[Rfam]
Background
Rfam assigns this 81-nucleotide sequence from Nasonia vitripennis to the family "mir-31 microRNA precursor family". The family's consensus secondary structure was predicted with RNAalifold. It is one of the family's seed sequences. On this family, see Aravin et al., Dev Cell 2003: "The small RNA profile during Drosophila melanogaster development". NCBI's taxonomy places the organism under Eukaryota, Pterygota, Hymenoptera, Pteromalidae, Nasonia.

RNA sequence: GAGCGUGUAGAAGGCAAGAUGUCGGCAUAGCUGAUGCUUUUGAAAUUUCGGCUGUGUCACAUCCAGCCAGCCAAACGCUCA
Numbered sequence: 001g002a003g004c005g006u007g008u009a010g011a012a013g014g015c016a017a018g019a020u021g022u023c024g025g026c027a028u029a030g031c032u033g034a035u036g037c038u039u040u041u042g043a044a045a046u047u048u049c050g051g052c053u054g055u056g057u058c059a060c061a062u063c064c065a066g067c068c069a070g071c072c073a074a075a076c077g078c079u080c081a
Base pairs, nucleotide, nucleotide: 005076006075008073010071013068014067015066018063019062020061021060024058025057026056027055028054029053030052031051